[Rfam]
RNA sequence: GGCCGUGAUAUUGUCCUGUCACAGCAGUACUGAAUCGAGCUACUGCUGCCUCGGGACAUGACCACGGCC
Dot-bracket structure: ..((((.....(((((((...((((((((...........))))))))...))))))).....))))..